[Rfam]
Nucleotides: 068
Stems, first nucleotide, its partner, number of pairs: 011049007025039005053068005
Number, partner (000 for none) and nucleotide at each position: 001000u002000a003000u004000a005000a006000a007000g008000a009000a010000a011049c012048g013047a014046a015045g016044u017043c018000u019000a020000a021000a022000a023000u024000c025039g026038c027037c028036a029035c030000g031000u032000u033000g034000u035029g036028u037027g038026g039025c040000a041000a042000u043017g044016g045015c046014u047013u048012c049011g050000c051000g052000a053068c054067c055066a056065g057064c058000a059000u060000c061000c062000c063000u064057g065056u066055u067054g068053g
Record summary: Bacillaceae-1 RNA: a 68-nucleotide sequence from Bacillus sp. FJAT-50079. The match comes from Rfam's covariance-model search (51 bits). The base pairs follow the family's consensus structure, which is taken from published work. Rfam classes the family as a small RNA.